[Rfam]
RNA sequence: GUGGCCGCGAGAUAUGUUUGAUAUUCUUGGUUGUGCCACGAACCAACCAGGAGUCAGACAUAUGCUCGCGGAGCU
Numbered sequence: 001g002u003g004g005c006c007g008c009g010a011g012a013u014a015u016g017u018u019u020g021a022u023a024u025u026c027u028u029g030g031u032u033g034u035g036c037c038a039c040g041a042a043c044c045a046a047c048c049a050g051g052a053g054u055c056a057g058a059c060a061u062a063u064g065c066u067c068g069c070g071g072a073g074c075u
Stems, first nucleotide, its partner, number of pairs: 005071005012063011024051002029048005

This 75-nucleotide RNA sequence from Ixodes scapularis belongs to the Rfam family "mir-190 microRNA precursor family". The family has 76 seed sequences and 1,667 matches in Rfam 15.1. NCBI's taxonomy places the organism under Eukaryota, Metazoa, Chelicerata, Parasitiformes, Ixodes. The match comes from Rfam's covariance-model search (63 bits). Clan: mir-50 clan.